[Rfam]
The record is a 348-nucleotide RNA sequence from Burkholderiales bacterium PBB1, which matches "Bacterial RNase P class A" in Rfam. A search with the family's covariance model found it, with a score of 200 bits. The source organism's lineage runs through Bacteria, Pseudomonadati, Pseudomonadota, Betaproteobacteria and Burkholderiales.
RNA sequence: GAAGCAAGCCAGACCGCCGCUGGUGCACUGUCCCGAAAGGGCGCACUGGAGGAAGGUCCGGACUGCACAGGGCAGCGCAGCAGCUAACGGCUGUCCACCGCGAGGUGAGGAUCAGAGCUACAGAGACGAGUCGGGGUUCAGGUCGCAAGGCCUGGGCUUCGGGUGAAACGAGCAAUCUCUGCGCGCAGCAACACCAAAUAGGCCGACGUUGAUGUGGCUCCGCGGAGUCGGCGGGUAGGUGGCACCGAGCCGUGCAGCGAUGCACGGCCCAGAGGAAUGGCGGUCACGGCGGGGCGGGCGCAAGCCCGCCCGGCUGCACAGAAUCCGGCCUAUCGGCUCGCUUCACAC
Numbered sequence: 001g002a003a004g005c006a007a008g009c010c011a012g013a014c015c016g017c018c019g020c021u022g023g024u025g026c027a028c029u030g031u032c033c034c035g036a037a038a039g040g041g042c043g044c045a046c047u048g049g050a051g052g053a054a055g056g057u058c059c060g061g062a063c064u065g066c067a068c069a070g071g072g073c074a075g076c077g078c079a080g081c082a083g084c085u086a087a088c089g090g091c092u093g094u095c096c097a098c099c100g101c102g103a104g105g106u107g108a109g110g111a112u113c114a115g116a117g118c119u120a121c122a123g124a125g126a127c128g129a130g131u132c133g134g135g136g137u138u139c140a141g142g143u144c145g146c147a148a149g150g151c152c153u154g155g156g157c158u159u160c161g162g163g164u165g166a167a168a169c170g171a172g173c174a175a176u177c178u179c180u181g182c183g184c185g186c187a188g189c190a191a192c193a194c195c196a197a198a199u200a201g202g203c204c205g206a207c208g209u210u211g212a213u214g215u216g217g218c219u220c221c222g223c224g225g226a227g228u229c230g231g232c233g234g235g236u237a238g239g240u241g242g243c244a245c246c247g248a249g250c251c252g253u254g255c256a257g258c259g260a261u262g263c264a265c266g267g268c269c270c271a272g273a274g275g276a277a278u279g280g281c282g283g284u285c286a287c288g289g290c291g292g293g294g295c296g297g298g299c300g301c302a303a304g305c306c307c308g309c310c311c312g313g314c315u316g317c318a319c320a321g322a323a324u325c326c327g328g329c330c331u332a333u334c335g336g337c338u339c340g341c342u343u344c345a346c347a348c
Base pairs, nucleotide, nucleotide: 001344002343003342004341005340007338008337009336010335011333012285013284014283015282016281017280018279020049021048022047023046024045025044026043028041054331055330056329058328059327060326061325062324063188064187065186066185070220071219072218073217075184076183077182078181079180080094081093082092083091084090095109096107097106098105099104110179111178115177116176117173118172119171132162134158135157139154140153141152142151143150192241193240194239195238202232203231204230205229206228207227213224214223215222216221249268250267251266252265253264254263255262256261